Metazoan signal recognition particle RNA: a 298-nucleotide RNA from Anolis carolinensis. On this family, see Wild et al., Curr Opin Struct Biol 2002: "Towards the structure of the mammalian signal recognition particle". It is annotated as a non-coding RNA gene. The family is grouped with related families in Rfam's "SRP clan". Lineage of the source: Eukaryota > Chordata > Amniota > Sauropsida > Anolis. The signal recognition particle (SRP) is a universally conserved ribonucleoprotein. It is involved in the co-translational targeting of proteins to membranes.
RNA sequence: GCCGGGCGCGGUGGCGCGCGCCUGUAAUCCAGCUGCGCGGAGGCUGAGGGCGGCGGAUGGCGUGAGCUCAGGAGUUCUGGGCCGCGGCGGGCUAUGCCGAUCGGGUGUCCGCGCUAAGUCCGGCGUCAAUAUGGGGGCCCGCGGGGAGCCGGGGGCCGCCAGGUUGCCUCAGGAGGGGUGAACCGGCCCAGGCCGGAGACGGAGCAGGUCAAAACUCCCGCGCCGACCAGUAGCGGGACCGCGCCCGUGAAUAGCCGCCACGGCGCAGCCUGGGCAAGACAGCCAGACCCGACCUCAA
Numbered sequence: 001g002c003c004g005g006g007c008g009c010g011g012u013g014g015c016g017c018g019c020g021c022c023u024g025u026a027a028u029c030c031a032g033c034u035g036c037g038c039g040g041a042g043g044c045u046g047a048g049g050g051c052g053g054c055g056g057a058u059g060g061c062g063u064g065a066g067c068u069c070a071g072g073a074g075u076u077c078u079g080g081g082c083c084g085c086g087g088c089g090g091g092c093u094a095u096g097c098c099g100a101u102c103g104g105g106u107g108u109c110c111g112c113g114c115u116a117a118g119u120c121c122g123g124c125g126u127c128a129a130u131a132u133g134g135g136g137g138c139c140c141g142c143g144g145g146g147a148g149c150c151g152g153g154g155g156c157c158g159c160c161a162g163g164u165u166g167c168c169u170c171a172g173g174a175g176g177g178g179u180g181a182a183c184c185g186g187c188c189c190a191g192g193c194c195g196g197a198g199a200c201g202g203a204g205c206a207g208g209u210c211a212a213a214a215c216u217c218c219c220g221c222g223c224c225g226a227c228c229a230g231u232a233g234c235g236g237g238a239c240c241g242c243g244c245c246c247g248u249g250a251a252u253a254g255c256c257g258c259c260a261c262g263g264c265g266c267a268g269c270c271u272g273g274g275c276a277a278g279a280c281a282g283c284c285a286g287a288c289c290c291g292a293c294c295u296c297a298a
Stems, first nucleotide, its partner, number of pairs: 001044003004023007028041003046296004051291003058285004066275007077268003081264004086259004091255005097249001102247007109237002112235005118228001121225006127166004132161003136157005142151003167173002175218005185210004193202003